[Rfam]
The family of this 116-nucleotide RNA from Paramixta manurensis is "Ribosomal S15 leader". On this family, see Benard et al., Biochimie 1996: "Pseudoknot and translational control in the expression of the S15 ribosomal protein". The source organism's lineage runs through Bacteria, Gammaproteobacteria, Enterobacterales, Erwiniaceae and Paramixta. The match comes from Rfam's covariance-model search (105 bits). Rfam's curators write: The E. coli Ribosomal S15 gene 5' UTR can form two alternative structures. One that is a series of three hairpins, The other includes a pseudoknot. This structure causes translational regulation of the S15 protein. The alignment of this family contains only the final two hairpins which are conserved in other species, and also includes the complete region that forms the alternate structures. Pairs were carried over by alignment from the consensus structure, which is taken from published work. Gene Ontology term of the family: regulation of translation, ncRNA-mediated. Clan: Ribosomal Protein S15 Leader clan.
RNA sequence: UGGGGUCGCUGAAUUAGAGAUCGGCACCCUUACAUUCAUUUAAAUUUUGGAGUUUUACUAUGUCUCUAAGCGUAGAAGCUAAAGCAGAGAUCGUUGCUAAAUAUGGUCGUGGCGCU
Numbered sequence: 001u002g003g004g005g006u007c008g009c010u011g012a013a014u015u016a017g018a019g020a021u022c023g024g025c026a027c028c029c030u031u032a033c034a035u036u037c038a039u040u041u042a043a044a045u046u047u048u049g050g051a052g053u054u055u056u057a058c059u060a061u062g063u064c065u066c067u068a069a070g071c072g073u074a075g076a077a078g079c080u081a082a083a084g085c086a087g088a089g090a091u092c093g094u095u096g097c098u099a100a101a102u103a104u105g106g107u108c109g110u111g112g113c114g115c116u
Base pairs, nucleotide, nucleotide: 008025009024010023011022012021046070047069048068049067050066051065052064